[Rfam]
RNA sequence: AUAUUCGAAAUGCCGAAACUUGCAAUUCCAAGUGCGGGGGAUGAUUUGCGGAUAGCUAUCUUAUUUAAUUGUAGAUAGAUGUCCUUGGGGUGAAGCGCAGUGGUGAAUAGAGCGCCGGGUUGUAUCCUCAAUCCGAAUCCGACAGCUAACUCCGCAGGCAUCAUCAAAAGGAGGC
Numbered sequence: 001a002u003a004u005u006c007g008a009a010a011u012g013c014c015g016a017a018a019c020u021u022g023c024a025a026u027u028c029c030a031a032g033u034g035c036g037g038g039g040g041a042u043g044a045u046u047u048g049c050g051g052a053u054a055g056c057u058a059u060c061u062u063a064u065u066u067a068a069u070u071g072u073a074g075a076u077a078g079a080u081g082u083c084c085u086u087g088g089g090g091u092g093a094a095g096c097g098c099a100g101u102g103g104u105g106a107a108u109a110g111a112g113c114g115c116c117g118g119g120u121u122g123u124a125u126c127c128u129c130a131a132u133c134c135g136a137a138u139c140c141g142a143c144a145g146c147u148a149a150c151u152c153c154g155c156a157g158g159c160a161u162c163a164u165c166a167a168a169a170g171g172a173g174g175c
Base pairs, nucleotide, nucleotide: 011160012159013158014157018033019032020031021030022029034155035154036153037152038151039150043086088140089139090138096114097113098112117134118133119132120131
RNA: c-di-AMP riboswitch aptamer (ydaO/yuaA leader)